[Rfam]
This 163-nucleotide RNA sequence from Armadillidium nasatum belongs to the Rfam family "U1 spliceosomal RNA".
Rfam describes the family as follows. U1 is a small nuclear RNA (snRNA) component of the spliceosome (involved in pre-mRNA splicing).
For this family Rfam cites "The uRNA database" (Zwieb, Nucleic Acids Res, 1997).
Lineage of the source: Eukaryota > Opisthokonta > Panarthropoda > Armadillidiidae > Armadillidium.
Rfam classes the family as a spliceosomal small nuclear RNA.
The family's consensus secondary structure is taken from published work.

RNA sequence: AUACUUACCUGGCACAGGGGAUACCAUGAUCAAGAAGGUGGUUCCCCCAGGGCGAGGCUCACCAUUGCACUUCGGUGAUGCUGACCCUUGCGAUUGCCCCAAAUGUGGGCAACUCGAGUGCGUAAUUUUUGGUAGCGGGGGACUGCGUUCGCGCUUUCCCCCU
Numbered sequence: 001a002u003a004c005u006u007a008c009c010u011g012g013c014a015c016a017g018g019g020g021a022u023a024c025c026a027u028g029a030u031c032a033a034g035a036a037g038g039u040g041g042u043u044c045c046c047c048c049a050g051g052g053c054g055a056g057g058c059u060c061a062c063c064a065u066u067g068c069a070c071u072u073c074g075g076u077g078a079u080g081c082u083g084a085c086c087c088u089u090g091c092g093a094u095u096g097c098c099c100c101a102a103a104u105g106u107g108g109g110c111a112a113c114u115c116g117a118g119u120g121c122g123u124a125a126u127u128u129u130u131g132g133u134a135g136c137g138g139g140g141g142a143c144u145g146c147g148u149u150c151g152c153g154c155u156u157u158c159c160c161c162c163u
Base pairs, nucleotide, nucleotide: 012121013120014119015118017047018046019045020044021043023042024041025040026039027038049089050088051087052086054085056082057081058080059078060077061076062075063074091116092115093114094112095111096110098108099107137162138161139160140159141158142157145154146153147152